The record is a 64-nucleotide RNA from Mus musculus, which matches "U7 small nuclear RNA" in Rfam.

[Rfam]
RNA sequence: AAUUCUUCAUAGCUCUUCUAGAAACUUUUCUAACAGGAUUUCUGACCUUGGUUGGAAAUCCCAA
Numbered sequence: 001a002a003u004u005c006u007u008c009a010u011a012g013c014u015c016u017u018c019u020a021g022a023a024a025c026u027u028u029u030c031u032a033a034c035a036g037g038a039u040u041u042c043u044g045a046c047c048u049u050g051g052u053u054g055g056a057a058a059u060c061c062c063a064a
Stems, first nucleotide, its partner, number of pairs: 036061011

Background: The base pairs follow the family's consensus structure, which was predicted with PFOLD. From the family's description: Animal histone pre-mRNAs are spliced by a different mechanism than nuclear pre-mRNAs and self-splicing introns. This processing involves the U7 snRNP, which contains only one RNA species: U7. The 5' end of U7 RNA is thought to base-pair to a conserved spacer element downstream of the cleavage site in histone pre-mRNA. This family contains a number of annotated U7 pseudogenes. The organism belongs to Mus, within Eukaryota.